[Rfam]
The family of this 197-nucleotide RNA sequence from Macaca nemestrina is "Small nucleolar RNA SNORA74". Clan: SNORA74 clan. By type it is an H/ACA-box small nucleolar RNA. Rfam describes the family as follows. U19 belongs to the H/ACA class of snoRNAs. snoRNAs bind a number of proteins (including dyskerin, Gar1p and Nop10p in the case of the H/ACA class) to form snoRNP complexes. This class are thought to guide the sites of modification of uridines to pseudouridines by forming direct base pairing interactions with substrate RNAs. It scores 172 bits against the family's covariance model. Its family is annotated with RNA processing and nucleolus in the Gene Ontology. The family has 24 seed sequences and 1,348 matches in Rfam 15.1.
RNA sequence: UCCAGCAGUCGUUAGCUCUCCUGGCUAGUGUGAUGCCUGUGAUGGUGUUUCACUGUUGGAACAGUAAGCACUGUCUUCAUUGAGGCUUGGCUGCAGCUGCUGUUUUGGUGUGGGGCCAAGUACCUUUGGGCAGUGUUUCGCACCUUUGAGAGUGAAAUGACUCCUGUGGAUUAAGUCCUAAUCUGAGUGCAAACAAU
Numbered sequence: 001u002c003c004a005g006c007a008g009u010c011g012u013u014a015g016c017u018c019u020c021c022u023g024g025c026u027a028g029u030g031u032g033a034u035g036c037c038u039g040u041g042a043u044g045g046u047g048u049u050u051c052a053c054u055g056u057u058g059g060a061a062c063a064g065u066a067a068g069c070a071c072u073g074u075c076u077u078c079a080u081u082g083a084g085g086c087u088u089g090g091c092u093g094c095a096g097c098u099g100c101u102g103u104u105u106u107g108g109u110g111u112g113g114g115g116c117c118a119a120g121u122a123c124c125u126u127u128g129g130g131c132a133g134u135g136u137u138u139c140g141c142a143c144c145u146u147u148g149a150g151a152g153u154g155a156a157a158u159g160a161c162u163c164c165u166g167u168g169g170a171u172u173a174a175g176u177c178c179u180a181a182u183c184u185g186a187g188u189g190c191a192a193a194c195a196a197u
Base pairs, nucleotide, nucleotide: 001060002059003058004057005056006055007054008053009052011051015046016045017044019042020041021039023037024036025035068136069135070134071133072132073131074130075129076128082126083125084124085123087119088118089117090116091115092114094112095111098110099109100108101107138192140190141189142188143187145185154178156176158174160172162170163169164168